[Rfam]
Rfam assigns this 169-nucleotide sequence from Allostreptomyces psammosilenae to the family "c-di-AMP riboswitch aptamer (ydaO/yuaA leader)".
RNA sequence: GAACCGGUAACGACACCCGAAAGGCAGGAGCGGGGGAACCAGGUGGUACGCCGCCUUCCACGGAAGGCGGCUUGGGGUGAAGUCGCGUCACGGAUUCGUGACUCGGCCGGGCACGUUCCAUCUCCAGCCCGAACCCGACAGCUCACCUCGCAGGCGGUGGAGAGGAACA
Numbered sequence: 001g002a003a004c005c006g007g008u009a010a011c012g013a014c015a016c017c018c019g020a021a022a023g024g025c026a027g028g029a030g031c032g033g034g035g036g037a038a039c040c041a042g043g044u045g046g047u048a049c050g051c052c053g054c055c056u057u058c059c060a061c062g063g064a065a066g067g068c069g070g071c072u073u074g075g076g077g078u079g080a081a082g083u084c085g086c087g088u089c090a091c092g093g094a095u096u097c098g099u100g101a102c103u104c105g106g107c108c109g110g111g112c113a114c115g116u117u118c119c120a121u122c123u124c125c126a127g128c129c130c131g132a133a134c135c136c137g138a139c140a141g142c143u144c145a146c147c148u149c150g151c152a153g154g155c156g157g158u159g160g161a162g163a164g165g166a167a168c169a
Stems, first nucleotide, its partner, number of pairs: 004028002030151006040074005075136003083106003109130004
It scores 55 bits against the family's covariance model.